[Rfam]
Makes More Granules Regulator RNA (mmgR): a 78-nucleotide RNA sequence from Pseudoxanthobacter soli.
Rfam's curators write: SuhB later renamed mmgR (makes more granules regulator) was a putative non-coding RNA found multiple times in the Agrobacterium tumefaciens genome and related alpha-proteobacteria. Other non-coding RNAs uncovered in the same analysis include: speF, ybhL, metA, and serC.Several studies inSinorhizobium meliloti showed that suhB element is indeed a non-coding RNA:firstly it was detected on Northern blot and called Sm8RNA, secondly in an RNAseq study referred to as SmelC689.The mutant phenotype's (strain lacking the small RNA) cytoplasm contains higher content of polyhydroxybutyrate (PBH)storage granules than wild type strain. The sRNA is required to limit the PBH intracellular accumulation when the nitrogen-fixing Sinorhizobium meliloti is under condition of surplus carbon in relation to nitrogen.
Rfam 15.1 lists 1,791 matches to the family in 918 species.
It is annotated as a small RNA.

RNA sequence: AGGAUGUGCCCUCUUUGGGCGUUUCCUCCCAGACUUAAGACCGCGCGCUCGUUCGCUGCGGUCUUUUUUUUUGCCUCA
Numbered sequence: 001a002g003g004a005u006g007u008g009c010c011c012u013c014u015u016u017g018g019g020c021g022u023u024u025c026c027u028c029c030c031a032g033a034c035u036u037a038a039g040a041c042c043g044c045g046c047g048c049u050c051g052u053u054c055g056c057u058g059c060g061g062u063c064u065u066u067u068u069u070u071u072u073g074c075c076u077c078a
Stems, first nucleotide, its partner, number of pairs: 008020004039063006045056003